Shown here is a 120-nucleotide RNA sequence from Glycine max, a member of the family "MIR1520 microRNA precursor family". Its family is annotated with miRNA-mediated post-transcriptional gene silencing and RISC complex in the Gene Ontology. The family is grouped with related families in Rfam's "MIR1520 microRNA precursor clan". A search with the family's covariance model found it, with a score of 81 bits.

[Rfam]
RNA sequence: UUUUUAUUGAAUUAUGACUAUUACAUGUGAUGUUAUAAUUGGUCAAUGAAAAUAAAAAUACAUUUCAUCUCUCAUGAAAUUAACAUCCAAUUAAAAUAUAAUAUGUGACCGUCUUCAUUU
Numbered sequence: 001u002u003u004u005u006a007u008u009g010a011a012u013u014a015u016g017a018c019u020a021u022u023a024c025a026u027g028u029g030a031u032g033u034u035a036u037a038a039u040u041g042g043u044c045a046a047u048g049a050a051a052a053u054a055a056a057a058a059u060a061c062a063u064u065u066c067a068u069c070u071c072u073c074a075u076g077a078a079a080u081u082a083a084c085a086u087c088c089a090a091u092u093a094a095a096a097u098a099u100a101a102u103a104u105g106u107g108a109c110c111g112u113c114u115u116c117a118u119u120u
Stems, first nucleotide, its partner, number of pairs: 021108003025104002030099002033096002036093001038091005